[Rfam]
This 149-nucleotide sequence from Spinacia oleracea belongs to the Rfam family "MIR396 microRNA precursor family". A reference for the family is Jones-Rhoades and Bartel (2004), "Computational identification of plant microRNAs and their targets, including a stress-induced miRNA", Mol Cell. Pairs were carried over by alignment from the consensus structure, which was predicted with WAR. Its family is annotated with miRNA-mediated post-transcriptional gene silencing and RISC complex in the Gene Ontology. The organism belongs to Spinacia, within Eukaryota.
RNA sequence: UGUCAUGCUUUUCCACAGCUUUCUUGAACUUUCCUCUCCCUCGUCAUAGAGUGUAGUUUCUCCGUUCGUACAACGAGGCCAACUGAAGGCCAAUUUUGGUUUGAAAUUCUUCGCGGAAAGUUCAAGAAAGCUGUGGGAAAAUAUGGCGU
Numbered sequence: 001u002g003u004c005a006u007g008c009u010u011u012u013c014c015a016c017a018g019c020u021u022u023c024u025u026g027a028a029c030u031u032u033c034c035u036c037u038c039c040c041u042c043g044u045c046a047u048a049g050a051g052u053g054u055a056g057u058u059u060c061u062c063c064g065u066u067c068g069u070a071c072a073a074c075g076a077g078g079c080c081a082a083c084u085g086a087a088g089g090c091c092a093a094u095u096u097u098g099g100u101u102u103g104a105a106a107u108u109c110u111u112c113g114c115g116g117a118a119a120g121u122u123c124a125a126g127a128a129a130g131c132u133g134u135g136g137g138a139a140a141a142u143a144u145g146g147c148g149u
Stems, first nucleotide, its partner, number of pairs: 003146005013136003017132006024125004029120005